[Rfam]
Shown here is a 108-nucleotide RNA from Rhodothermaceae bacterium RA, a member of the family "Bacteroidales small SRP". Pairs were carried over by alignment from the consensus structure, which is taken from published work. Rfam links the family to the GO terms SRP-dependent cotranslational protein targeting to membrane, signal sequence recognition and signal recognition particle, plasma membrane targeting. Clan: SRP clan. The family's RNA type in Rfam is non-coding RNA gene.

RNA sequence: CCCGGAAGGGCAAGUCCUGUGCGGCCAGCUCCCUCUGAACCCCGUCAGGACCGGAAGGUAGCAGCGGUAGGAGGUCGUAGCGGCGCGAUACGGGUCGCUUGCCCUUCU
Numbered sequence: 001c002c003c004g005g006a007a008g009g010g011c012a013a014g015u016c017c018u019g020u021g022c023g024g025c026c027a028g029c030u031c032c033c034u035c036u037g038a039a040c041c042c043c044g045u046c047a048g049g050a051c052c053g054g055a056a057g058g059u060a061g062c063a064g065c066g067g068u069a070g071g072a073g074g075u076c077g078u079a080g081c082g083g084c085g086c087g088a089u090a091c092g093g094g095u096c097g098c099u100u101g102c103c104c105u106u107c108u
Stems, first nucleotide, its partner, number of pairs: 008104008017093005022087002024084002
Dot-bracket structure: .......((((((((.(((((((((.........................................................)).)).)))))...))))))))....
For this family Rfam cites "A high-resolution transcriptome map identifies small RNA regulation of metabolism in the gut microbe Bacteroides thetaiotaomicron" (Ryan et al., Nat Commun, 2020).